[Rfam]
RNA: MIR394 microRNA precursor family
RNA sequence: CCUACAGAUUUCUUUGGCAUUCUGUCCACCUCCUUCUACAUAUACAAGCAAUUUAUAUAUAUGCAUGGUGUGAAAGAUGGAGGUGGUCAUACUGUCAACAGACAUCUGUUAG
Dot-bracket structure: ..........(..((((((...((.((((((((.............................................)))))))).))...))))))...)..........